[Rfam]
RNA: Histone 3' UTR stem-loop
Organism: Onychostoma macrolepis
RNA sequence: CCAAAGGCUCUUUUAAGAGCCACCCAUCUAUUCGUUAAAAGAGUAU
Dot-bracket structure: .....((((((....)))))).........................